[Rfam]
RNA sequence: AUCAUAAAACCUUCAGAAGGAAAGAAUGUUGUGGACCAUUUUUUUUUGUGUGUGGCAGUUUUAAGUU
Numbered sequence: 001a002u003c004a005u006a007a008a009a010c011c012u013u014c015a016g017a018a019g020g021a022a023a024g025a026a027u028g029u030u031g032u033g034g035a036c037c038a039u040u041u042u043u044u045u046u047u048g049u050g051u052g053u054g055g056c057a058g059u060u061u062u063a064a065g066u067u
Base pairs, nucleotide, nucleotide: 005063006062007061008060009059010058011055012054014052015051017049018047019046020045021044022043023042024041025040026039027038028037